This 85-nucleotide sequence from Nocardioides humilatus belongs to the Rfam family "SAH (S-adenosyl-L-homocysteine) riboswitch aptamer". The family's consensus secondary structure is taken from published work. The organism belongs to Nocardioides, within Bacteria.

[Rfam]
RNA sequence: GGUGCCGAGAGGCGUUGCAACGGACCCCGACCGUCGAGGGUCCGCCACGCUCGGCGAAGUCUCACUGCAAGGGCGCCUUCCGUGA
Numbered sequence: 001g002g003u004g005c006c007g008a009g010a011g012g013c014g015u016u017g018c019a020a021c022g023g024a025c026c027c028c029g030a031c032c033g034u035c036g037a038g039g040g041u042c043c044g045c046c047a048c049g050c051u052c053g054g055c056g057a058a059g060u061c062u063c064a065c066u067g068c069a070a071g072g073g074c075g076c077c078u079u080c081c082g083u084g085a
Base pairs, nucleotide, nucleotide: 003056004055005054006053007052008051021044022043023042024041025040026039